RNA sequence: CAUUGAGGUGAGGAUAGCCGAUUCAGAUGUCUUGUGACGAGCUAAAAAAACAGACUACAAUUAUCUGAUCAAUG
Dot-bracket structure: ((((((..............................................................))))))
Numbered sequence: 001c002a003u004u005g006a007g008g009u010g011a012g013g014a015u016a017g018c019c020g021a022u023u024c025a026g027a028u029g030u031c032u033u034g035u036g037a038c039g040a041g042c043u044a045a046a047a048a049a050a051c052a053g054a055c056u057a058c059a060a061u062u063a064u065c066u067g068a069u070c071a072a073u074g
Stems, first nucleotide, its partner, number of pairs: 001074006